[Rfam]
RNA sequence: GUCGCGAUGGCGUAGUUGGUUAUCGCAUCCGGUUUACACCCGGAAGGUCUCCAGUUCGAUCCUGGAUUGCGACA
Numbered sequence: 001g002u003c004g005c006g007a008u009g010g011c012g013u014a015g016u017u018g019g020u021u022a023u024c025g026c027a028u029c030c031g032g033u034u035u036a037c038a039c040c041c042g043g044a045a046g047g048u049c050u051c052c053a054g055u056u057c058g059a060u061c062c063u064g065g066a067u068u069g070c071g072a073c074a
Stems, first nucleotide, its partner, number of pairs: 001073007010026003028044005050066005

Shown here is a 74-nucleotide RNA sequence from Coemansia sp. RSA 990, a member of the family "tRNA". By type it is a transfer RNA. Rfam links the family to the GO term triplet codon-amino acid adaptor activity.